A member of the RNA family "miR-430 microRNA precursor family" from Etheostoma spectabile, 69 nucleotides long. Pairs were carried over by alignment from the consensus structure, which was predicted with RNAalifold. Its family is annotated with miRNA-mediated post-transcriptional gene silencing and RISC complex in the Gene Ontology. A reference for the family is Giraldez et al. (2005), "MicroRNAs regulate brain morphogenesis in zebrafish", Science. Lineage of the source: Eukaryota > Ctenosquamata > Eupercaria > Perciformes > Oligocephalus. A search with the family's covariance model found it, with a score of 49 bits. The family has 32 seed sequences and 24,817 matches in Rfam 15.1.
RNA sequence: CCUAUUACCUUAACUUUAGCAUUGACUUGACUGUUGAAUUCAGUAAGUGCUACUUAUGGGGUAGUUGAA
Dot-bracket structure: ...((((((((.....(((((((.(((..............))).))))))).....))))))))....